The family of this 80-nucleotide RNA from Flavobacterium sp. is "Flavo-1 RNA".

RNA sequence: UUCGAUGCGUUAGGGAUAGAAGCGGAAAUCUUUUUUACGGCUUCGGCGAAAAAAAAUUGCAGCGGAUAGCCCGGCCGAAG
Numbered sequence: 001u002u003c004g005a006u007g008c009g010u011u012a013g014g015g016a017u018a019g020a021a022g023c024g025g026a027a028a029u030c031u032u033u034u035u036u037a038c039g040g041c042u043u044c045g046g047c048g049a050a051a052a053a054a055a056a057u058u059g060c061a062g063c064g065g066a067u068a069g070c071c072c073g074g075c076c077g078a079a080g
Stems, first nucleotide, its partner, number of pairs: 013072003017068002022063002027058003033053004038048002